Notes
Rfam assigns this 136-nucleotide sequence from Tinamus guttatus to the family "Small nucleolar RNA SNORA58". The family's consensus secondary structure was predicted with PFOLD.
[Rfam]
RNA sequence: CCGCACACCAGUAGACCUUGUCUGGUUCUUCUGAUAGCCACAUGAGGGGGAUGGUGCAUGCAACAACAAUCUGGAGUUUGCUGCAAGCUCUCGUCAGCCUUGAUGUGACUGAUUGAACUGCAAUACUCCAACAUCC
Dot-bracket structure: ..(((..(.......((((((.((..............)).))))))........)..)))...........((((..(..(((.........((((...........)))).......)))..))))).......
The match comes from Rfam's covariance-model search (86 bits). Rfam describes the family as follows. ACA52 is a member of the H/ACA class of snoRNA that guide the sites of modification of uridines to pseudouridines.